[Rfam]
RNA sequence: AGAGAGGUGUCCGAGCUGGCCGAAGGAGCACGAUUGGAAAUCGUGUAUACGUGUGAGCGUAUCGAGGGUUCGAAUCCCUUCCUCUCUG
Numbered sequence: 001a002g003a004g005a006g007g008u009g010u011c012c013g014a015g016c017u018g019g020c021c022g023a024a025g026g027a028g029c030a031c032g033a034u035u036g037g038a039a040a041u042c043g044u045g046u047a048u049a050c051g052u053g054u055g056a057g058c059g060u061a062u063c064g065a066g067g068g069u070u071c072g073a074a075u076c077c078c079u080u081c082c083u084c085u086c087u088g
Stems, first nucleotide, its partner, number of pairs: 001087007010027003029045005064080005

The record is an 88-nucleotide RNA sequence from Ammoniphilus oxalaticus, which matches "tRNA" in Rfam. A search with the family's covariance model found it, with a score of 50 bits. NCBI's taxonomy places the organism under Bacteria, Bacillati, Bacilli, Paenibacillaceae, Ammoniphilus.